[Rfam]
Nucleotides: 136
Stems, first nucleotide, its partner, number of pairs: 003062006020046003026039004074128004088113006095106003
Number, partner (000 for none) and nucleotide at each position: 001000c002000u003062g004061c005060a006059g007058a008057c009000c010000u011000u012000u013000u014000c015000c016000a017000g018000c019000g020046a021045g022044g023000c024000u025000c026039a027038g028037c029036c030000u031000g032000c033000a034000g035000u036029g037028g038027c039026u040000c041000c042000u043000u044022c045021c046020u047000u048000u049000c050000c051000u052000g053000u054000a055000g056000u057008g058007u059006c060005u061004g062003c063000u064000a065000g066000a067000g068000a069000g070000a071000u072000g073000u074128g075127a076126g077125g078000c079000u080000g081000u082000u083000u084000g085000a086000g087000g088113c089112c090111c091110u092109g093108c094000u095106g096105u097104g098000u099000c100000u101000c102000c103000u104097c105096a106095u107000g108093g109092c110091a111090g112089g113088g114000u115000u116000a117000u118000a119000g120000g121000u122000a123000a124000a125077c126076c127075u128074c129000c130000a131000a132000c133000a134000a135000c136000c
Record summary: The record is a 136-nucleotide RNA sequence from Sparus aurata, which matches "Small nucleolar RNA SNORA9" in Rfam. From the family's description: ACA9 is a member of the H/ACA class of snoRNA that guide the sites of modification of uridines to pseudouridines. Pairs were carried over by alignment from the consensus structure, which was predicted with PFOLD. The match comes from Rfam's covariance-model search (101 bits). Its family is annotated with RNA processing and nucleolus in the Gene Ontology.